Description:
This 50-nucleotide sequence from Turnera subulata belongs to the Rfam family "Plastid-ndhJ 3UTR RNA".
RNA sequence: UCAUAAAUUUUGUACCGCGCACAUCCCUUAGAUGAGCUAUAGAAAAGAAA
Numbered sequence: 001u002c003a004u005a006a007a008u009u010u011u012g013u014a015c016c017g018c019g020c021a022c023a024u025c026c027c028u029u030a031g032a033u034g035a036g037c038u039a040u041a042g043a044a045a046a047g048a049a050a
Stems, first nucleotide, its partner, number of pairs: 019037002022034004

About the family: Plastid ndhJ is a non-coding RNA (ncRNA) present in plastids. It was identified as a short stem-loop motif in the 3 prime untranslate region (3UTR) of ndhJ gene. The literature on the family includes a 2023 paper in Plant Commun by Richter et al., "Retrograde signaling in plants: A critical review focusing on the GUN pathway and beyond". Lineage of the source: Eukaryota > Streptophyta > Streptophytina > Gunneridae > Turnera. It is annotated as a cis-regulatory element.